[Rfam]
RNA sequence: GUUAAAAGAUGAAUUGAAAUUAUUGACAAGCAUAUGUCUGAUUCUUUAAGAGAUGAAAAAUUUUCAUGUCUGAUAAC
Number, nucleotide and partner (000 for none) at each position: 001g077002u076003u075004a074005a000006a000007a000008g000009a000010u000011g000012a000013a000014u000015u000016g000017a000018a000019a000020u000021u000022a000023u000024u000025g000026a000027c000028a000029a000030g000031c000032a000033u000034a000035u000036g000037u000038c000039u000040g000041a000042u000043u000044c000045u000046u000047u000048a000049a000050g000051a000052g000053a000054u000055g000056a000057a000058a000059a000060a000061u000062u000063u000064u000065c000066a000067u000068g000069u000070c000071u000072g000073a000074u004075a003076a002077c001